[Rfam]
This 126-nucleotide RNA from Sulfobacillus harzensis belongs to the Rfam family "c-di-AMP riboswitch aptamer (ydaO/yuaA leader)". The organism belongs to Sulfobacillus, within Bacteria. Gene Ontology terms of the family: cyclic-di-AMP binding and regulation of gene expression. The match comes from Rfam's covariance-model search (56 bits). About the family: This family represents a conserved RNA structure found upstream of the ydaO and yuaA genes in Bacillus subtilis and related genes in other bacteria.
Nucleotides: 126
Stems, first nucleotide, its partner, number of pairs: 011112004018035006036107006046055002056092003071086004
Number, partner (000 for none) and nucleotide at each position: 001000c002000c003000a004000u005000u006000u007000u008000g009000u010000a011112u012111g013110c014109c015000a016000a017000a018035u019034u020033a021032u022031c023030c024000c025000a026000a027000c028000c029000c030023g031022g032021a033020u034019g035018a036107a037106c038105g039104g040103g041102g042000g043000a044000c045000c046055c047054a048000a049000u050000u051000g052000u053000g054047u055046g056092g057091g058090g059000c060000g061000c062000a063000c064000c065000a066000g067000c068000a069000g070000a071086g072085a073084g074083c075000a076000u077000u078000u079000u080000c081000c082000c083074g084073c085072u086071c087000c088000a089000g090058c091057c092056c093000g094000u095000c096000a097000g098000c099000u100000u101000a102041c103040c104039u105038c106037g107036u108000c109014g110013g111012c112011g113000u114000g115000g116000a117000a118000a119000g120000c121000a122000a123000a124000g125000a126000c